[Rfam]
RNA sequence: GACCGAUAAAGGCAAAAUUACCGAAAGGUAAUGACGCAAAACUACAGGGCCUUAAUUCUACAUUUAGUAGAGAUGGUAGCCAGUUACCGAA
Dot-bracket structure: ...........((...((((((....))))))...))..((((...(((((.....((((.......))))...)))..))))))......
Numbered sequence: 001g002a003c004c005g006a007u008a009a010a011g012g013c014a015a016a017a018u019u020a021c022c023g024a025a026a027g028g029u030a031a032u033g034a035c036g037c038a039a040a041a042c043u044a045c046a047g048g049g050c051c052u053u054a055a056u057u058c059u060a061c062a063u064u065u066a067g068u069a070g071a072g073a074u075g076g077u078a079g080c081c082a083g084u085u086a087c088c089g090a091a
Stems, first nucleotide, its partner, number of pairs: 012037002017032006040085004047081002049077003057071004

Shown here is a 91-nucleotide sequence from Holtiella tumoricola, a member of the family "c-di-GMP-I riboswitch aptamer". The family's consensus secondary structure is taken from published work. GEMM was predicted in a large-scale screen for bacterial structured RNA regulatory elements. The match comes from Rfam's covariance-model search (75 bits). The source organism's lineage runs through Bacteria, Bacillati, Clostridia, Lachnospirales and Holtiella.